RNA sequence: AAAACAAGUAGAGGUUGCGUUGAUUAUCAGUAAGCGGUCGGAUGCGGCAGGUGCAGGAGAAGACAGCUGAAAGGAUGAUACGCCGAAGGGCUGCGGCGCCUGUAUCUGCAGUUCCUGGGUGCAGGAUGAAGAAUUCUGUAACUGUCAUCGACAGAUGGGGAGCUACUGGGAGU
Numbered sequence: 001a002a003a004a005c006a007a008g009u010a011g012a013g014g015u016u017g018c019g020u021u022g023a024u025u026a027u028c029a030g031u032a033a034g035c036g037g038u039c040g041g042a043u044g045c046g047g048c049a050g051g052u053g054c055a056g057g058a059g060a061a062g063a064c065a066g067c068u069g070a071a072a073g074g075a076u077g078a079u080a081c082g083c084c085g086a087a088g089g090g091c092u093g094c095g096g097c098g099c100c101u102g103u104a105u106c107u108g109c110a111g112u113u114c115c116u117g118g119g120u121g122c123a124g125g126a127u128g129a130a131g132a133a134u135u136c137u138g139u140a141a142c143u144g145u146c147a148u149c150g151a152c153a154g155a156u157g158g159g160g161a162g163c164u165a166c167u168g169g170g171a172g173u
Stems, first nucleotide, its partner, number of pairs: 007167005017083004025075001033068003037064003087116003090112007117143002120140008145158005
Dot-bracket structure: ......(((((.....((((....(.......(((.(((......................))).)))......)....))))...((((((((((.........))))))).)))((.((((((((.....)))))))).)).(((((....)))))....)))))......
The record is a 173-nucleotide RNA sequence from Clostridium sp. CAG:43, which matches "Lysine riboswitch aptamer" in Rfam. It scores 97 bits against the family's covariance model. Lineage of the source: Bacteria > Clostridia > Eubacteriales > Clostridiaceae > Clostridium.